[Rfam]
Rfam assigns this 316-nucleotide RNA from Methanocaldococcus jannaschii to the family "Archaeal signal recognition particle RNA". The family's consensus secondary structure is taken from published work. Gene Ontology terms of the family: SRP-dependent cotranslational protein targeting to membrane, signal sequence recognition and signal recognition particle, plasma membrane targeting. It is annotated as a non-coding RNA gene. For this family Rfam cites "Crystal structure of the ribonucleoprotein core of the signal recognition particle" (Batey et al., Science, 2000).

RNA sequence: UGCAUGGCUAGGCCGGGGGGUUGGGCGUCCCCUGUAACCCGAAAUCGCCCUUAUGCGGGGGCCGAAAACUUGGGGGCGGCAUGUCCUCCAGUCCUUCCUUCCCAGACUCCUCGAUGAGGUCUCGUCCCGUGGGGCUCGGCGGUGGGGGAGCAUCUCCUGUAGGGGAGAUGUAACCCCCUUUACCUGCCGAACCCCGCCAGGCCCGGAAGGGAGCAACGGUAGGCAGGACGUCGGCGCUCACGGGGGUGCGGGACGGAGAAGGAAUCUGGGGGCGAGGGAGGACUGGAGGACAUGCCCACCCCAAGGAAGCCAUGCA
Number, nucleotide and partner (000 for none) at each position: 001u316002g315003c314004a313005u312006g311007g310008c309009u308010a000011g063012g062013c061014c060015g033016g032017g031018g030019g029020g028021u027022u000023g000024g000025g000026c000027g021028u020029c019030c018031c017032c016033u015034g000035u000036a000037a000038c059039c058040c057041g056042a000043a054044a000045u000046c000047g000048c000049c000050c000051u000052u000053a000054u043055g000056c041057g040058g039059g038060g014061g013062c012063c011064g000065a000066a000067a000068a000069c305070u304071u303072g302073g301074g300075g299076g000077c000078g296079g295080c294081a293082u000083g000084u289085c288086c000087u000088c000089c285090a284091g283092u282093c281094c280095u279096u278097c277098c276099u275100u000101c270102c269103c268104a267105g266106a265107c000108u263109c262110c261111u260112c000113g000114a000115u256116g000117a000118g000119g254120u253121c252122u251123c250124g249125u248126c244127c243128c242129g241130u240131g239132g238133g237134g235135c234136u000137c233138g232139g231140c230141g229142g180143u000144g178145g177146g176147g175148g174149a000150g171151c170152a169153u168154c167155u166156c165157c164158u163159g000160u000161a000162g000163g158164g157165g156166a155167g154168a153169u152170g151171u150172a000173a000174c148175c147176c146177c145178c144179u000180u142181u000182a000183c227184c226185u225186g224187c223188c222189g000190a000191a000192c000193c000194c219195c218196g217197c000198c000199a000200g000201g000202c211203c210204c209205g000206g000207a000208a000209g204210g203211g202212a000213g000214c000215a000216a000217c196218g195219g194220u000221a000222g188223g187224c186225a185226g184227g183228a000229c141230g140231u139232c138233g137234g135235c134236g000237c133238u132239c131240a130241c129242g128243g127244g126245g000246g000247u000248g125249c124250g123251g122252g121253a120254c119255g000256g115257a000258g000259a000260a111261g110262g109263a108264a000265u106266c105267u104268g103269g102270g101271g000272g000273c000274g000275a099276g098277g097278g096279a095280g094281g093282a092283c091284u090285g089286g000287a000288g085289g084290a000291c000292a000293u081294g080295c079296c078297c000298a000299c075300c074301c073302c072303a071304a070305g069306g000307a000308a009309g008310c007311c006312a005313u004314g003315c002316a001